The record is a 357-nucleotide part of an RNA from Halorubrum lacusprofundi, which matches "Archaeal large subunit ribosomal RNA" in Rfam. Pairs were carried over by alignment from the consensus structure, which is taken from published work. The source organism's lineage runs through Archaea, Methanobacteriati, Methanobacteriota, Halobacteria and Halorubrum lacusprofundi. Gene Ontology terms of the family: ribosome and structural constituent of ribosome.
RNA sequence: CGGGAGAACCGACGUUAGGGAAUUCGGCAAGUUAGUCCCGUACCUUCGGAAGAAGGGAUGCCUGCUCUCGACGGAGCAGGUCGCAGUGACUCGGGCGCUCCGACUGUCUAAUAACAACACAGGUGACCGCAAAUCCGCAAGGACUCGUACGGUCACUGAAUCCUGCCCAGUGCGGGUAUCUGAACACCUCGUACAAGAGGACGAAGGACCCGUCAACGGCGGGGGUAACUAUGACCCUCUUAAGGUAGCGUAGUACCUUGCCGCUUCAGUAGCGGCUUGCAUGAAUGGAUAAACGAGAGCGCCACUGUCCCAACGUUGGACCCGGUGAACUGUACGUUCCAGUGCGGAGUCUGGAGA
Numbered sequence: 001c002g003g004g005a006g007a008a009c010c011g012a013c014g015u016u017a018g019g020g021a022a023u024u025c026g027g028c029a030a031g032u033u034a035g036u037c038c039c040g041u042a043c044c045u046u047c048g049g050a051a052g053a054a055g056g057g058a059u060g061c062c063u064g065c066u067c068u069c070g071a072c073g074g075a076g077c078a079g080g081u082c083g084c085a086g087u088g089a090c091u092c093g094g095g096c097g098c099u100c101c102g103a104c105u106g107u108c109u110a111a112u113a114a115c116a117a118c119a120c121a122g123g124u125g126a127c128c129g130c131a132a133a134u135c136c137g138c139a140a141g142g143a144c145u146c147g148u149a150c151g152g153u154c155a156c157u158g159a160a161u162c163c164u165g166c167c168c169a170g171u172g173c174g175g176g177u178a179u180c181u182g183a184a185c186a187c188c189u190c191g192u193a194c195a196a197g198a199g200g201a202c203g204a205a206g207g208a209c210c211c212g213u214c215a216a217c218g219g220c221g222g223g224g225g226u227a228a229c230u231a232u233g234a235c236c237c238u239c240u241u242a243a244g245g246u247a248g249c250g251u252a253g254u255a256c257c258u259u260g261c262c263g264c265u266u267c268a269g270u271a272g273c274g275g276c277u278u279g280c281a282u283g284a285a286u287g288g289a290u291a292a293a294c295g296a297g298a299g300c301g302c303c304a305c306u307g308u309c310c311c312a313a314c315g316u317u318g319g320a321c322c323c324g325g326u327g328a329a330c331u332g333u334a335c336g337u338u339c340c341a342g343u344g345c346g347g348a349g350u351c352u353g354g355a356g357a
Stems, first nucleotide, its partner, number of pairs: 001324004009319008018310003035059005044049001060081009082086001094303007101295002105119003122157008130147001134143003160290004165220003170217002172213005179208003187200004221239006240244001260276006338355005